[Rfam]
Nucleotides: 161
Base pairs, nucleotide, nucleotide: 012122013121014120016048017047018046019045021043025040026039027038049090050089051088052087054086056083058081060079061078062077063076092117093116094115095113096112097111099109100108138161139160141158146155147154
Number, partner (000 for none) and nucleotide at each position: 001000c002000u003000a004000c005000u006000u007000a008000c009000c010000u011000g012122g013121c014120a015000g016048g017047g018046g019045a020000g021043g022000u023000a024000c025040u026039g027038u028000g029000a030000u031000c032000a033000u034000g035000a036000a037000g038027g039026u040025g041000a042000c043021u044000g045019u046018c047017c048016u049090a050089g051088g052087g053000u054086g055000a056083g057000a058081c059000u060079u061078a062077u063076c064000c065000a066000u067000u068000c069000c070000c071000c072000u073000c074000c075000a076063g077062a078061u079060g080000u081058g082000c083056u084000g085000a086054u087052c088051c089050c090049u091000g092117c093116a094115a095113u096112u097111u098000c099109u100108g101000u102000a103000a104000a105000c106000g107000c108100c109099a110000g111097a112096a113095g114000c115094u116093u117092g118000c119000a120014u121013g122012c123000a124000u125000a126000a127000a128000u129000u130000g131000u132000g133000g134000g135000a136000g137000u138161g139160g140000a141158a142000a143000g144000c145000u146155g147154u148000u149000u150000u151000c152000a153000u154147g155146c156000u157000c158141u159000c160139c161138c

Description: This 161-nucleotide RNA from Rattus norvegicus belongs to the Rfam family "U1 spliceosomal RNA". The source organism's lineage runs through Eukaryota, Euteleostomi, Boreoeutheria, Muridae and Rattus. The base pairs follow the family's consensus structure, which is taken from published work.